[Rfam]
RNA sequence: AGAAAGGCAGCUGAGUUAGAACUUAACAGCGUCAGUCCUUCACCCGACACGGUCAAAGAGG
Dot-bracket structure: ...((((..(((((((....)))...))))......)))).....................
RNA: cow-rumen-1 RNA